[Rfam]
RNA sequence: GGAAGCGUAUCGUCACCGGUGUGGCGCCUGGACUUCAAAUCCAGUGGAACGGUUAACCCCGUUCGGUAGGUUCGACUCCUAUACGCUUCC
Numbered sequence: 001g002g003a004a005g006c007g008u009a010u011c012g013u014c015a016c017c018g019g020u021g022u023g024g025c026g027c028c029u030g031g032a033c034u035u036c037a038a039a040u041c042c043a044g045u046g047g048a049a050c051g052g053u054u055a056a057c058c059c060c061g062u063u064c065g066g067u068a069g070g071u072u073c074g075a076c077u078c079c080u081a082u083a084c085g086c087u088u089c090c
Stems, first nucleotide, its partner, number of pairs: 001090009011026006028044005047064005067081004
RNA: Selenocysteine transfer RNA